The record is a 339-nucleotide RNA from Dipodomys ordii, which matches "Nuclear RNase P" in Rfam. The family has 116 seed sequences and 3,848 matches in Rfam 15.1. Taxonomically the source falls in Dipodomys (Eukaryota, Opisthokonta, Dipnotetrapodomorpha, Mammalia).
RNA sequence: GGCGGUGGGAAGCUCAUCAGUGGGGCUACAAGCUGAGUGCACGAUGUCACUCCGUCCCGUGUCCCUUGGGAAGGUCUGAGACUAGGGCCAUUAAAGCAGACCUAACAGGUCUCUCCCUGACUUUCGGGGAGGUGAGUUCCCAGAGAGCGGGUCUCCAAGCGAGGGCAGACCGGGCAGGAGAUGCCGAGGACCCACGCCCGUCCGCGGGUUAGGGCCCGGUGGAUGCCUCCCUAGCUGGAGCUUGGAACAGACUCACGGCCAGCCUUCAUGAGUUCAAUGGCUGAGGUGAGGUACCAGCCAUGGGGCCUCAUAACCCAAUUCAGACUACUCUCCCCCGUC
Numbered sequence: 001g002g003c004g005g006u007g008g009g010a011a012g013c014u015c016a017u018c019a020g021u022g023g024g025g026c027u028a029c030a031a032g033c034u035g036a037g038u039g040c041a042c043g044a045u046g047u048c049a050c051u052c053c054g055u056c057c058c059g060u061g062u063c064c065c066u067u068g069g070g071a072a073g074g075u076c077u078g079a080g081a082c083u084a085g086g087g088c089c090a091u092u093a094a095a096g097c098a099g100a101c102c103u104a105a106c107a108g109g110u111c112u113c114u115c116c117c118u119g120a121c122u123u124u125c126g127g128g129g130a131g132g133u134g135a136g137u138u139c140c141c142a143g144a145g146a147g148c149g150g151g152u153c154u155c156c157a158a159g160c161g162a163g164g165g166c167a168g169a170c171c172g173g174g175c176a177g178g179a180g181a182u183g184c185c186g187a188g189g190a191c192c193c194a195c196g197c198c199c200g201u202c203c204g205c206g207g208g209u210u211a212g213g214g215c216c217c218g219g220u221g222g223a224u225g226c227c228u229c230c231c232u233a234g235c236u237g238g239a240g241c242u243u244g245g246a247a248c249a250g251a252c253u254c255a256c257g258g259c260c261a262g263c264c265u266u267c268a269u270g271a272g273u274u275c276a277a278u279g280g281c282u283g284a285g286g287u288g289a290g291g292u293a294c295c296a297g298c299c300a301u302g303g304g305g306c307c308u309c310a311u312a313a314c315c316c317a318a319u320u321c322a323g324a325c326u327a328c329u330c331u332c333c334c335c336c337g338u339c
Stems, first nucleotide, its partner, number of pairs: 001339004008333003013285004018280001022066004035052005040046001076323005086260004098112005113131006132256007153240005286311007